The record is a 323-nucleotide RNA sequence from Xanthomonas citri, which matches "Proteobacterial sRNA Xoo8" in Rfam.
The base pairs follow the family's consensus structure, which was predicted with CMfinder.
Rfam's curators put it in the seed alignment.
Rfam classes the family as a small RNA.
[Rfam]
RNA sequence: GCCAGGCCGACUGAGGAGCGUCGGCUGCGUCGCCACGGUGACGUAGCCCGUCCUACCCCGAAGCCCGCUUCGGGUUGCACCACCAUGUCAUGUCAUUUCUGCCGGAUCGGUGCCGAUCCGGCAGCUUUUGCCAUCGCGUGACUGACUGAUUACGGUUGCCGUCACGCGCGACUUGUUAAAAUUCGGAUAAUCUCAGCGGAAUAGACAGCCGGUUCAGCGUCUGUCUGCAUUGUUCAUCCAGACUUCGCAUAUGACCCAGCAACGCACUCUCAAGAACACCAUUCGCGCCACCGGCGUCGGCCUGCACAGCGGCGACAAGGUGU
Numbered sequence: 001g002c003c004a005g006g007c008c009g010a011c012u013g014a015g016g017a018g019c020g021u022c023g024g025c026u027g028c029g030u031c032g033c034c035a036c037g038g039u040g041a042c043g044u045a046g047c048c049c050g051u052c053c054u055a056c057c058c059c060g061a062a063g064c065c066c067g068c069u070u071c072g073g074g075u076u077g078c079a080c081c082a083c084c085a086u087g088u089c090a091u092g093u094c095a096u097u098u099c100u101g102c103c104g105g106a107u108c109g110g111u112g113c114c115g116a117u118c119c120g121g122c123a124g125c126u127u128u129u130g131c132c133a134u135c136g137c138g139u140g141a142c143u144g145a146c147u148g149a150u151u152a153c154g155g156u157u158g159c160c161g162u163c164a165c166g167c168g169c170g171a172c173u174u175g176u177u178a179a180a181a182u183u184c185g186g187a188u189a190a191u192c193u194c195a196g197c198g199g200a201a202u203a204g205a206c207a208g209c210c211g212g213u214u215c216a217g218c219g220u221c222u223g224u225c226u227g228c229a230u231u232g233u234u235c236a237u238c239c240a241g242a243c244u245u246c247g248c249a250u251a252u253g254a255c256c257c258a259g260c261a262a263c264g265c266a267c268u269c270u271c272a273a274g275a276a277c278a279c280c281a282u283u284c285g286c287g288c289c290a291c292c293g294g295c296g297u298c299g300g301c302c303u304g305c306a307c308a309g310c311g312g313c314g315a316c317a318a319g320g321u322g323u
Base pairs, nucleotide, nucleotide: 001313002312003311004303005302006301007300008299009298010297011296016052017051023048024047025046026045027044028043029042030041031040032039033038055076057074058073059072060071061070062069063068077265078264087131088130099124100123101122102121103120104119105118106117107116108115109114136167137166138165139164140163141162142161144157145156146155169185170184171183186209188203189202191200192199214254215253217248218247219246223243224242225241226240227239287295288294289293304310305309